[Rfam]
RNA sequence: AAAGCAAACCGUUCUAUCGUUCCGGCUUAUGCCGGAAAGGAAAGUCCGGGCAACAAAGAGCAUUUCGCUUCCUAACGGGAAGGGUUACGCCUUGGGGUGUAAUACGGAAAGUGCCACAGAAAAUAAACCGCCCCUAUUUUUGGGGUAAGGGUGAAAACGCGAGGUAAGAGCUCACGGCUAUUUAUGGUGACAUAUUUGGCGGUAAACCCCGGAAGUUGAAAGGUCAAAUAGGUUCCGAAUGGAGUUGCUCGCUCUUUCCUGGUUUUAUAACCAGGUUUCGGAAUGGGUAGACCGUUUGAUCCUGUUAGUGAUGACAGGGCUAGAUAAAUGAUAGAACAUCUUAACUUAUAGAAUAGGAAGAUGACAGAACCCGGCUUACAGGUUUGCUUUUUUU
Numbered sequence: 001a002a003a004g005c006a007a008a009c010c011g012u013u014c015u016a017u018c019g020u021u022c023c024g025g026c027u028u029a030u031g032c033c034g035g036a037a038a039g040g041a042a043a044g045u046c047c048g049g050g051c052a053a054c055a056a057a058g059a060g061c062a063u064u065u066c067g068c069u070u071c072c073u074a075a076c077g078g079g080a081a082g083g084g085u086u087a088c089g090c091c092u093u094g095g096g097g098u099g100u101a102a103u104a105c106g107g108a109a110a111g112u113g114c115c116a117c118a119g120a121a122a123a124u125a126a127a128c129c130g131c132c133c134c135u136a137u138u139u140u141u142g143g144g145g146u147a148a149g150g151g152u153g154a155a156a157a158c159g160c161g162a163g164g165u166a167a168g169a170g171c172u173c174a175c176g177g178c179u180a181u182u183u184a185u186g187g188u189g190a191c192a193u194a195u196u197u198g199g200c201g202g203u204a205a206a207c208c209c210c211g212g213a214a215g216u217u218g219a220a221a222g223g224u225c226a227a228a229u230a231g232g233u234u235c236c237g238a239a240u241g242g243a244g245u246u247g248c249u250c251g252c253u254c255u256u257u258c259c260u261g262g263u264u265u266u267a268u269a270a271c272c273a274g275g276u277u278u279c280g281g282a283a284u285g286g287g288u289a290g291a292c293c294g295u296u297u298g299a300u301c302c303u304g305u306u307a308g309u310g311a312u313g314a315c316a317g318g319g320c321u322a323g324a325u326a327a328a329u330g331a332u333a334g335a336a337c338a339u340c341u342u343a344a345c346u347u348a349u350a351g352a353a354u355a356g357g358a359a360g361a362u363g364a365c366a367g368a369a370c371c372c373g374g375c376u377u378a379c380a381g382g383u384u385u386g387c388u389u390u391u392u393u394u
Stems, first nucleotide, its partner, number of pairs: 001390010011379001012336007020037007042377003046374005051218004058268001060266001063214005068082005083105001084103008106209002111207002113203003128150002130146005136140001158176002161173003177200001178198001180197001183194004222293004232284006262271002300319008

Annotation
Shown here is a 394-nucleotide RNA from bacterium A37T11, a member of the family "Bacterial RNase P class A". Rfam's curators write: Ribonuclease P (RNase P) is a ubiquitous endoribonuclease, found in archaea, bacteria and eukarya as well as chloroplasts and mitochondria. The match comes from Rfam's covariance-model search (263 bits). On this family, see Frank and Pace, Annu Rev Biochem 1998: "Ribonuclease P: unity and diversity in a tRNA processing ribozyme".